[Rfam]
Nucleotides: 161
Base pairs, nucleotide, nucleotide: 005030006029032142033141034140035139036138037137042071043070072127073126074125080104081103082102083101107121108120109119110118
Number, partner (000 for none) and nucleotide at each position: 001000g002000a003000g004000g005030u006029c007000c008000g009000u010000u011000c012000g013000c014000a015000a016000c017000a018000a019000u020000c021000g022000c023000a024000u025000g026000g027000c028000a029006g030005g031000g032142g033141c034140g035139g036138g037137g038000g039000a040000a041000c042071c043070a044000a045000u046000u047000g048000u049000g050000g051000g052000c053000u054000u055000c056000u057000u058000u059000u060000c061000a062000g063000a064000a065000g066000u067000c068000c069000u070043u071042g072127g073126g074125g075000u076000u077000a078000a079000g080104u081103c082102g083101c084000a085000g086000g087000a088000u089000c090000u091000g092000a093000g094000a095000c096000g097000a098000u099000c100000c101083g102082c103081g104080g105000c106000c107121g108120g109119g110118u111000g112000a113000c114000u115000c116000c117000c118110a119109u120108c121107c122000g123000a124000a125074u126073c127072c128000g129000a130000c131000a132000g133000c134000u135000c136000a137037c138036c139035u140034c141033g142032c143000a144000g145000g146000c147000g148000u149000a150000g151000g152000g153000a154000g155000a156000g157000g158000c159000a160000a161000u
The record is a 161-nucleotide sequence from Arthrobacter subterraneus, which matches "c-di-AMP riboswitch aptamer (ydaO/yuaA leader)" in Rfam. The pairing is the family consensus, mapped onto this sequence.